[Rfam]
Description
Rfam assigns this 90-nucleotide RNA from Streptomyces sp. NRRL F-525 to the family "dauA ncRNA motif". NCBI's taxonomy places the organism under Bacteria, Bacillati, Actinomycetota, Actinomycetes, Streptomyces. The family's RNA type in Rfam is cis-regulatory element. Rfam's curators write: dauA ncRNA motif was reported as a strong cis regulatory motif candidate, with potential to be a cis regulatory riboswitch type, it have been identified in genomes of the genus Streptomyces.
RNA sequence: ACGCCCCCCGCCCGCAGCGCGGCCCGGGCGCCGGAACUCCCGUCGUCACCACACCCGUUGCCGGAUGGUCCCCCGAACCGAGGCGUCAUG
Numbered sequence: 001a002c003g004c005c006c007c008c009c010g011c012c013c014g015c016a017g018c019g020c021g022g023c024c025c026g027g028g029c030g031c032c033g034g035a036a037c038u039c040c041c042g043u044c045g046u047c048a049c050c051a052c053a054c055c056c057g058u059u060g061c062c063g064g065a066u067g068g069u070c071c072c073c074c075g076a077a078c079c080g081a082g083g084c085g086u087c088a089u090g
Base pairs, nucleotide, nucleotide: 001086002085003084004083005082011064012063014061016059017058018057019056021054026050027049028046029045030044032042033041034040066080067079068078